[Rfam]
RNA: Potassium channel RNA editing signal
Organism: Laticauda laticaudata
RNA sequence: GUGGGCUAUGGUGACAUGAGCCCCAUCACCGUGGGAGGAAAGAUUGUGGGCUCCUUGUGUGCCAUUGCCGGCGUGCUCACCAUCGCCCUGCCCGUACCGGUCAUCGUGUCUAAC
Numbered sequence: 001g002u003g004g005g006c007u008a009u010g011g012u013g014a015c016a017u018g019a020g021c022c023c024c025a026u027c028a029c030c031g032u033g034g035g036a037g038g039a040a041a042g043a044u045u046g047u048g049g050g051c052u053c054c055u056u057g058u059g060u061g062c063c064a065u066u067g068c069c070g071g072c073g074u075g076c077u078c079a080c081c082a083u084c085g086c087c088c089u090g091c092c093c094g095u096a097c098c099g100g101u102c103a104u105c106g107u108g109u110c111u112a113a114c
Base pairs, nucleotide, nucleotide: 001114002113004111005110007108008107009106010105011104013102014101015100018097020095021094037077038076040074049063050062051061